[Rfam]
RNA: Enterococcus sRNA A1
Organism: Staphylococcus aureus
RNA sequence: AAAUCGACAUGUGCAAAAACGUAAUCGACCUUCGUCGAUUUUUUUAUUUCAAAAUUAAAGAAACGGCUUGAGAUAUUCCGAGCAGUUAUAAAAAUUAAUUUGCGUUGAAUAUUGCUACUACAUUCUUGAAAAAGUGAUGUAGAUUUAUAGCCCAUAACUUUUUUGAAUUACAUCGACGAUACGGCGUCGAAAGAAAAAUAAAUAGACCGUAUGAAAGAAAAAG
Numbered sequence: 001a002a003a004u005c006g007a008c009a010u011g012u013g014c015a016a017a018a019a020c021g022u023a024a025u026c027g028a029c030c031u032u033c034g035u036c037g038a039u040u041u042u043u044u045u046a047u048u049u050c051a052a053a054a055u056u057a058a059a060g061a062a063a064c065g066g067c068u069u070g071a072g073a074u075a076u077u078c079c080g081a082g083c084a085g086u087u088a089u090a091a092a093a094a095u096u097a098a099u100u101u102g103c104g105u106u107g108a109a110u111a112u113u114g115c116u117a118c119u120a121c122a123u124u125c126u127u128g129a130a131a132a133a134g135u136g137a138u139g140u141a142g143a144u145u146u147a148u149a150g151c152c153c154a155u156a157a158c159u160u161u162u163u164u165g166a167a168u169u170a171c172a173u174c175g176a177c178g179a180u181a182c183g184g185c186g187u188c189g190a191a192a193g194a195a196a197a198a199u200a201a202a203u204a205g206a207c208c209g210u211a212u213g214a215a216a217g218a219a220a221a222a223g
Stems, first nucleotide, its partner, number of pairs: 007210002011207002021042001023040007060079001062077002065074001067072001082121001084119003095108005126166010136153001139151002173190006